Background
A member of the RNA family "mir-26 microRNA precursor family" from Coregonus sp. 'balchen', 81 nucleotides long. The family has 82 seed sequences and 2,251 matches in Rfam 15.1. Taxonomically the source falls in Coregonus (Eukaryota, Craniata, Euteleostomi, Euteleosteomorpha). The literature on the family includes a 2002 paper in Curr Biol by Lagos-Quintana et al., "Identification of tissue-specific microRNAs from mouse". The match comes from Rfam's covariance-model search (84 bits). Rfam links the family to the GO terms RISC complex and miRNA-mediated post-transcriptional gene silencing.

RNA sequence: UCGUGACCCAGUUCAAGUAAUCCAGGAUAGGCUGUGUGUAUCCUGGUUGGCCUAUCCAUGAUUACUUGUACUGGGUGUCGG
Numbered sequence: 001u002c003g004u005g006a007c008c009c010a011g012u013u014c015a016a017g018u019a020a021u022c023c024a025g026g027a028u029a030g031g032c033u034g035u036g037u038g039u040a041u042c043c044u045g046g047u048u049g050g051c052c053u054a055u056c057c058a059u060g061a062u063u064a065c066u067u068g069u070a071c072u073g074g075g076u077g078u079c080g081g
Stems, first nucleotide, its partner, number of pairs: 002080002007075006014068009025057009